Annotation
Molybdenum/Tungsten riboswitch aptamer (Moco RNA motif): a 143-nucleotide sequence from Vibrio paucivorans. The base pairs follow the family's consensus structure, which is taken from published work.

RNA sequence: UAGUUGCCAUAACUCCGAGCUCUGCAAGCUAAGUUCAGUAGUUAGAUGGAUAAGCGUGCAAAGCCAGUGACAUAUUGUCACAAGGGCAUAAUUGGAAAUGAUUCUGCCUCCCGUGUUUGGAAAGGUGUUCCGUGGCGCAACAA
Numbered sequence: 001u002a003g004u005u006g007c008c009a010u011a012a013c014u015c016c017g018a019g020c021u022c023u024g025c026a027a028g029c030u031a032a033g034u035u036c037a038g039u040a041g042u043u044a045g046a047u048g049g050a051u052a053a054g055c056g057u058g059c060a061a062a063g064c065c066a067g068u069g070a071c072a073u074a075u076u077g078u079c080a081c082a083a084g085g086g087c088a089u090a091a092u093u094g095g096a097a098a099u100g101a102u103u104c105u106g107c108c109u110c111c112c113g114u115g116u117u118u119g120g121a122a123a124g125g126u127g128u129u130c131c132g133u134g135g136c137g138c139a140a141c142a143a
Stems, first nucleotide, its partner, number of pairs: 011129003015125002019064003023060004028055002033051004067081005084109005090103005110120002
Dot-bracket structure: ..........(((.((..(((.((((.((...((((...........))))..)).)))).)))..(((((.....)))))..(((((.(((((....))))).)))))((.......))...)).)))..............